This 104-nucleotide sequence from Rhizobium deserti belongs to the Rfam family "Alphaproteobacterial ar15". Rfam links the family to the GO term protein binding. A reference for the family is del Val et al. (2012), "A survey of sRNA families in alpha-proteobacteria", RNA Biol. Lineage of the source: Bacteria > Pseudomonadota > Alphaproteobacteria > Rhizobiaceae > Rhizobium.
[Rfam]
RNA sequence: AGCCGGCACUUGAUGACGUCCCCGUUGUCCGCCGGCUGUUCCCCUCUGGAGGUUUUUGACCUUCACACUUCGUGGGCCCUGGAGUGAUCCGGCGGCCCAUUUUU
Numbered sequence: 001a002g003c004c005g006g007c008a009c010u011u012g013a014u015g016a017c018g019u020c021c022c023c024g025u026u027g028u029c030c031g032c033c034g035g036c037u038g039u040u041c042c043c044c045u046c047u048g049g050a051g052g053u054u055u056u057u058g059a060c061c062u063u064c065a066c067a068c069u070u071c072g073u074g075g076g077c078c079c080u081g082g083a084g085u086g087a088u089c090c091g092g093c094g095g096c097c098c099a100u101u102u103u104u
Base pairs, nucleotide, nucleotide: 001037002036003035004034005033009031015029016028017027047065048064049063050062051061052060053059073099074098075097076096077095078094079092080091081090082089